[Rfam]
RNA sequence: AGCUGCAAUUUUGAGGCCACAGUGAAGCACUCAUAGUGUGGCCUGUCAUAUUCCAAUGGAUCUGUGAAUUCUGCU
Numbered sequence: 001a002g003c004u005g006c007a008a009u010u011u012u013g014a015g016g017c018c019a020c021a022g023u024g025a026a027g028c029a030c031u032c033a034u035a036g037u038g039u040g041g042c043c044u045g046u047c048a049u050a051u052u053c054c055a056a057u058g059g060a061u062c063u064g065u066g067a068a069u070u071c072u073g074c075u
Stems, first nucleotide, its partner, number of pairs: 015043004021075003024071003027039003047064002050061004
RNA: Mammalian CPEB3 ribozyme